[Rfam]
RNA sequence: CCUGAGCCUUGCACUGAGAUGGGAGUGGUGUAAGGCUCAGGUAUGCACAGCUCCCAUCUCAGAACAAGGCUCGGGUG
Numbered sequence: 001c002c003u004g005a006g007c008c009u010u011g012c013a014c015u016g017a018g019a020u021g022g023g024a025g026u027g028g029u030g031u032a033a034g035g036c037u038c039a040g041g042u043a044u045g046c047a048c049a050g051c052u053c054c055c056a057u058c059u060c061a062g063a064a065c066a067a068g069g070c071u072c073g074g075g076u077g
Stems, first nucleotide, its partner, number of pairs: 001075011014062013028048005035042002